This 557-nucleotide part of an RNA from candidate division MSBL1 archaeon SCGC-AAA382K21 belongs to the Rfam family "Archaeal large subunit ribosomal RNA".
[Rfam]
RNA sequence: ACGUCAAACCAUCUAGUGGAUGGUUCGGCUCGGGCGCCGACGAAGGUCAUGGCAAGCUGUGAUAAGCCUGGGCGAGGUGCAUGCAGCCCUUGAACCCAGGAUUGCCUAAUGGGACAUCCUGUCAUGGUAAACCCAUGGUGUUCGCGGCAGCGAACGGGAACCCCGCGAAUUGAAACAUCUUAGUAACGGGAGGAAGAGAAAGCAAGUGCGAUGCCCUUAGUAACGGCGAGCGAAAGGGGUAUAGGGCAAACCGAACCUGGUCGAGAAAUUGACUGGGAAUGUGGUGUUGCAGGACUCGAUCGCCACCUCCUCGAUGAAACCGAAGUCCACUGGAACGUGGCGCCAAAGAGGGUGAAAGCCCUGUAGGUGCAAAUUGAAAGGUGUAGGAUUGAGUAUCCUGAGUACCGUGCCUCGGAUAUGGCGCGGAAAGCUGGGAGAAACAACUCCCAACCCUAAACACGUCCCGAGACCGAUAGCGAACGCAGUACCGUGAGGGAAAACUGAAAAGUAUCUCGAAAGGGAGAUGAAAAGAGCCUGAAACUAGAUGGUGAUAGAAG
Number, nucleotide and partner (000 for none) at each position: 001a000002c000003g000004u000005c000006a000007a000008a549009c548010c547011a546012u545013c544014u543015a542016g541017u000018g000019g000020a000021u000022g535023g501024u500025u000026c000027g471028g470029c468030u467031c466032g465033g464034g463035c461036g460037c000038c000039g000040a000041c000042g000043a000044a107045g106046g105047u104048c061049a060050u059051g000052g000053c000054a000055a000056g000057c000058u000059g050060u049061g048062a000063u000064a000065a000066g000067c100068c099069u098070g097071g096072g095073c000074g000075a000076g088077g087078u086079g000080c000081a000082u000083g000084c000085a000086g078087c077088c076089c000090u000091u000092g000093a000094a000095c072096c071097c070098a069099g068100g067101a000102u000103u000104g047105c046106c045107u044108a000109a000110u000111g120112g119113g118114a000115c000116a000117u000118c113119c112120u111121g000122u000123c000124a000125u000126g000127g000128u000129a000130a000131a000132c000133c000134c000135a000136u000137g000138g000139u000140g000141u154142u153143c152144g151145c150146g000147g000148c000149a000150g145151c144152g143153a142154a141155c000156g000157g000158g000159a000160a000161c192162c190163c189164c188165g187166c000167g000168a000169a000170u000171u000172g179173a178174a000175a000176c000177a000178u173179c172180u000181u000182a000183g000184u000185a000186a000187c165188g164189g163190g162191a000192g161193g000194a000195a000196g000197a000198g000199a000200a000201a000202g209203c208204a000205a000206g000207u000208g203209c202210g000211a000212u000213g240214c239215c238216c237217u236218u000219a000220g000221u000222a000223a000224c230225g000226g000227c000228g000229a000230g224231c000232g000233a000234a000235a000236g217237g216238g215239g214240u213241a000242u000243a454244g453245g452246g451247c000248a000249a000250a000251c284252c283253g282254a000255a000256c000257c000258u000259g000260g000261u272262c271263g270264a269265g000266a000267a000268a000269u264270u263271g262272a261273c000274u000275g000276g000277g000278a000279a000280u000281g000282u253283g252284g251285u000286g000287u000288u000289g000290c000291a000292g000293g000294a000295c393296u392297c391298g390299a000300u000301c000302g000303c000304c383305a382306c381307c000308u000309c000310c000311u000312c000313g000314a000315u000316g000317a000318a000319a368320c367321c366322g000323a000324a000325g341326u000327c340328c339329a338330c337331u000332g000333g000334a000335a000336c000337g330338u329339g328340g327341c325342g000343c000344c348345a000346a000347a000348g344349a000350g362351g361352g360353u000354g000355a000356a000357a000358g000359c000360c352361c351362u350363g000364u000365a000366g321367g320368u319369g000370c000371a000372a000373a000374u000375u000376g000377a000378a000379a000380g000381g306382u305383g304384u000385a000386g000387g000388a000389u000390u298391g297392a296393g295394u000395a000396u000397c000398c000399u000400g000401a000402g000403u000404a000405c426406c425407g424408u423409g422410c421411c420412u000413c000414g000415g000416a000417u000418a000419u000420g411421g410422c409423g408424c407425g406426g405427a000428a000429a000430g000431c000432u000433g448434g447435g446436a445437g444438a000439a000440a000441c000442a000443a000444c437445u436446c435447c434448c433449a000450a000451c246452c245453c244454u243455a000456a000457a000458c000459a000460c036461g035462u000463c034464c033465c032466g031467a030468g029469a000470c028471c027472g000473a000474u000475a000476g000477c000478g000479a000480a000481c000482g000483c000484a000485g000486u000487a000488c495489c494490g000491u000492g000493a000494g489495g488496g000497a000498a000499a000500a024501c023502u000503g000504a000505a000506a000507a000508g000509u000510a000511u000512c000513u000514c000515g000516a000517a000518a000519g000520g000521g000522a000523g000524a000525u000526g000527a000528a000529a000530a000531g000532a000533g000534c000535c022536u000537g000538a000539a000540a000541c016542u015543a014544g013545a012546u011547g010548g009549u008550g000551a000552u000553a000554g000555a000556a000557g000
Pairs were carried over by alignment from the consensus structure, which is taken from published work.
A search with the family's covariance model found it, with a score of 2786 bits.